This 102-nucleotide sequence from Alkalicoccus daliensis belongs to the Rfam family "Purine riboswitch aptamer". The base pairs follow the family's consensus structure, which is taken from published work. It scores 77 bits against the family's covariance model.
[Rfam]
RNA sequence: GUUAAUUGAAGAUCGGCGCCUCAUAUAUCCUUGAGAAUAGGGCUCAAGAGUCUCUACCGGACCACCUUAAAUGGUCUGACUAUGAAGGCAGUUUUCUUAGUG
Numbered sequence: 001g002u003u004a005a006u007u008g009a010a011g012a013u014c015g016g017c018g019c020c021u022c023a024u025a026u027a028u029c030c031u032u033g034a035g036a037a038u039a040g041g042g043c044u045c046a047a048g049a050g051u052c053u054c055u056a057c058c059g060g061a062c063c064a065c066c067u068u069a070a071a072u073g074g075u076c077u078g079a080c081u082a083u084g085a086a087g088g089c090a091g092u093u094u095u096c097u098u099a100g101u102g
Stems, first nucleotide, its partner, number of pairs: 019087001021085005030048006058078007

The organism belongs to Alkalicoccus, within Bacteria. Rfam 15.1 lists 4,097 matches to the family in 1,411 species.